RNA sequence: UUCUUAUACAGAAGAGGCGAGAGAACAGGCUCAUUGACCCUCUGGCAACCCCCGAAAGGAAAGGUGCCAAUUCCUGCUCCAAACCAACAGGUUUGGGGAGAUAUAAAAA
Numbered sequence: 001u002u003c004u005u006a007u008a009c010a011g012a013a014g015a016g017g018c019g020a021g022a023g024a025a026c027a028g029g030c031u032c033a034u035u036g037a038c039c040c041u042c043u044g045g046c047a048a049c050c051c052c053c054g055a056a057a058g059g060a061a062a063g064g065u066g067c068c069a070a071u072u073c074c075u076g077c078u079c080c081a082a083a084c085c086a087a088c089a090g091g092u093u094u095g096g097g098g099a100g101a102u103a104u105a106a107a108a109a
Stems, first nucleotide, its partner, number of pairs: 001109002004106005013043005021032003026076004044068004049064002052059002072101001077098008